Overview:
TPP riboswitch aptamer (THI element): a 116-nucleotide sequence from Metabacillus sediminilitoris. The family's consensus secondary structure is taken from published work. Lineage of the source: Bacteria > Bacillati > Bacillota > Bacilli > Metabacillus.

RNA sequence: AUUUUCUACUAGGGGAGUCCAUUAGCUUGGACUGAGAGAAGAACGCGCUUGAAGUUCUUUGACCCUUUGAACCUGAUCUGGAUGAUACCAGCGUAGGGAAGUAGUAACAGUUGUUA
Numbered sequence: 001a002u003u004u005u006c007u008a009c010u011a012g013g014g015g016a017g018u019c020c021a022u023u024a025g026c027u028u029g030g031a032c033u034g035a036g037a038g039a040a041g042a043a044c045g046c047g048c049u050u051g052a053a054g055u056u057c058u059u060u061g062a063c064c065c066u067u068u069g070a071a072c073c074u075g076a077u078c079u080g081g082a083u084g085a086u087a088c089c090a091g092c093g094u095a096g097g098g099a100a101g102u103a104g105u106a107a108c109a110g111u112u113g114u115u116a
Base pairs, nucleotide, nucleotide: 006104007103008102009101010100011066012065013064014063016060017032018031019030020029021028039059040058041057042056043055072097073096074095075094078091079090080089081088